[Rfam]
RNA sequence: GGAUUAGGGGGAGAUGUGAUUGGGCCUAUGCUUCUAGCUGGGCUUAGGAAAGUCCCCGGGCCCGUACUGCAGAAAUGCAGGCCCUGUAAGGGGCUCACUACGAGAUGGAACUUGCGGCUGAGACAUGUGUGGAGCCUAUGCUUGUUCUGCCGUAGUAAUUGGCCAAUUUCACAGUCAUCCACAUGGUCAUCAUGACUAACAGAACGGGGCUUACUCCCUCCUAAUC
Number, nucleotide and partner (000 for none) at each position: 001g000002g226003a225004u224005u223006a222007g221008g220009g219010g218011g217012a000013g000014a184015u183016g182017u181018g180019a000020u000021u000022g045023g044024g043025c042026c041027u040028a039029u000030g000031c000032u000033u000034c000035u000036a000037g000038c000039u028040g027041g026042g025043c024044u023045u022046a000047g000048g000049a000050a212051a211052g210053u000054c209055c208056c207057c206058g000059g000060g000061c000062c000063c000064g000065u000066a000067c000068u079069g078070c077071a076072g000073a000074a000075a000076u071077g070078c069079a068080g095081g094082c093083c092084c091085u090086g000087u000088a000089a000090g085091g084092g083093g082094c081095u080096c000097a156098c155099u154100a153101c152102g151103a148104g000105a000106u000107g000108g147109a146110a145111c144112u000113u000114g000115c000116g136117g135118c134119u000120g000121a000122g000123a000124c000125a130126u000127g000128u000129g000130u125131g000132g000133a000134g118135c117136c116137u000138a000139u000140g000141c000142u000143u000144g111145u110146u109147c108148u103149g000150c000151c102152g101153u100154a099155g098156u097157a000158a000159u000160u000161g000162g000163c000164c000165a000166a000167u000168u000169u000170c000171a000172c000173a000174g000175u000176c000177a000178u000179c000180c018181a017182c016183a015184u014185g000186g196187u195188c194189a193190u000191c000192a000193u189194g188195a187196c186197u000198a000199a000200c000201a000202g000203a000204a000205c000206g057207g056208g055209g054210c052211u051212u050213a000214c000215u000216c000217c011218c010219u009220c008221c007222u006223a005224a004225u003226c002
Record summary:
Rfam assigns this 226-nucleotide sequence from Vigna radiata to the family "RNase MRP". It scores 83 bits against the family's covariance model. NCBI's taxonomy places the organism under Eukaryota, rosids, Fabales, Fabaceae, Vigna radiata.